[Rfam]
RNA: Small nucleolar RNA SNORA26
RNA sequence: UUGCCCACUCAGGGCUGGCAGUGCCCUGAGUGUCCAUUAGAGGGGGGUAGAGAGACCCUCGCUGAAACCUGGGGCAGGCGGUGUGUCGCUGUCUCAGAUCCUGUCGCGAGGAACACGC
Numbered sequence: 001u002u003g004c005c006c007a008c009u010c011a012g013g014g015c016u017g018g019c020a021g022u023g024c025c026c027u028g029a030g031u032g033u034c035c036a037u038u039a040g041a042g043g044g045g046g047g048u049a050g051a052g053a054g055a056c057c058c059u060c061g062c063u064g065a066a067a068c069c070u071g072g073g074g075c076a077g078g079c080g081g082u083g084u085g086u087c088g089c090u091g092u093c094u095c096a097g098a099u100c101c102u103g104u105c106g107c108g109a110g111g112a113a114c115a116c117g118c
Stems, first nucleotide, its partner, number of pairs: 002049005008043002014038001016036002019030001058110005069097007077089001